RNA sequence: GAAGCCAUGUGCGGGAGCUCGGAGGACCGGGCUGAGAGGGCAGCUGCCUGCUGCCGACCGCUGGAACCUGACCGGGUAAUGCCGGCGUAGGGAGCGACCUCGAGCAUGUC
Numbered sequence: 001g002a003a004g005c006c007a008u009g010u011g012c013g014g015g016a017g018c019u020c021g022g023a024g025g026a027c028c029g030g031g032c033u034g035a036g037a038g039g040g041c042a043g044c045u046g047c048c049u050g051c052u053g054c055c056g057a058c059c060g061c062u063g064g065a066a067c068c069u070g071a072c073c074g075g076g077u078a079a080u081g082c083c084g085g086c087g088u089a090g091g092g093a094g095c096g097a098c099c100u101c102g103a104g105c106a107u108g109u110c
Base pairs, nucleotide, nucleotide: 008096009095010094011061012060013059014058017032018031019030020029021028039055040054041053042052043051067091068090069089070088072085073084074083075082